[Rfam]
RNA sequence: ACCGAAUUCCCGGAGAGGGAACUUCGGAAGAUACAAUAAAUUAAGAUUAAGUGGUUGGAAUCGACGAGCAUGUUGCAAU
Numbered sequence: 001a002c003c004g005a006a007u008u009c010c011c012g013g014a015g016a017g018g019g020a021a022c023u024u025c026g027g028a029a030g031a032u033a034c035a036a037u038a039a040a041u042u043a044a045g046a047u048u049a050a051g052u053g054g055u056u057g058g059a060a061u062c063g064a065c066g067a068g069c070a071u072g073u074u075g076c077a078a079u
Stems, first nucleotide, its partner, number of pairs: 007029003011026005062075004

The family of this 79-nucleotide RNA from Zea mays is "Plastid-rpl20 3UTR RNA". The match comes from Rfam's covariance-model search (86 bits). On this family, see Richter et al., Plant Commun 2023: "Retrograde signaling in plants: A critical review focusing on the GUN pathway and beyond". Plastid rpl20 is a non-coding RNA (ncRNA) recognised in plastids. It was found in the three prime untranslated region (3UTR) of rpl20 gene, it presence in the 3UTR region sugest a role in transcript maduration. It is annotated as a cis-regulatory element.